[Rfam]
RNA sequence: UGCUCGCGUUAGCGAUUGCAGUGGCAUCCUUUUUAGUUCUUUUUUUGAACGAAGUUGAAAAAAAAAGAACUAAAAAGAUAGAACGGAAAGCGCGACCUGCA
Dot-bracket structure: ...........(((.((...((...(((...(((((((((((((((.............)))))))))))))))..)))...))...)).)))........
Numbered sequence: 001u002g003c004u005c006g007c008g009u010u011a012g013c014g015a016u017u018g019c020a021g022u023g024g025c026a027u028c029c030u031u032u033u034u035a036g037u038u039c040u041u042u043u044u045u046u047g048a049a050c051g052a053a054g055u056u057g058a059a060a061a062a063a064a065a066a067g068a069a070c071u072a073a074a075a076a077g078a079u080a081g082a083a084c085g086g087a088a089a090g091c092g093c094g095a096c097c098u099g100c101a
Stems, first nucleotide, its partner, number of pairs: 012093003016089002021084002026079003032074015

The family of this 101-nucleotide sequence from Polaribacter glomeratus is "Flavo-1 RNA". The organism belongs to Polaribacter, within Bacteria. The family has 201 seed sequences and 7,497 matches in Rfam 15.1.